A member of the RNA family "Small nucleolar RNA U54" from Cicer arietinum, 82 nucleotides long. Rfam 15.1 lists 614 matches to the family in 206 species. Rfam describes the family as follows. U54 is a C/D box small nucleolar RNA, which acts as a methylation guide for 18S ribosomal RNA in plants. Clan: U54 clan.

Nucleotides: 082
Stems, first nucleotide, its partner, number of pairs: 001082005
Number, partner (000 for none) and nucleotide at each position: 001082g002081g003080c004079u005078c006000u007000g008000u009000g010000a011000u012000a013000u014000u015000c016000u017000a018000c019000c020000u021000u022000u023000u024000u025000u026000g027000c028000c029000g030000u031000a032000u033000a034000u035000g036000c037000u038000a039000u040000g041000c042000u043000g044000a045000u046000u047000c048000a049000a050000g051000u052000u053000a054000u055000g056000a057000g058000c059000a060000g061000a062000a063000a064000u065000u066000u067000u068000a069000u070000a071000u072000a073000a074000a075000u076000g077000a078005g079004a080003g081002c082001u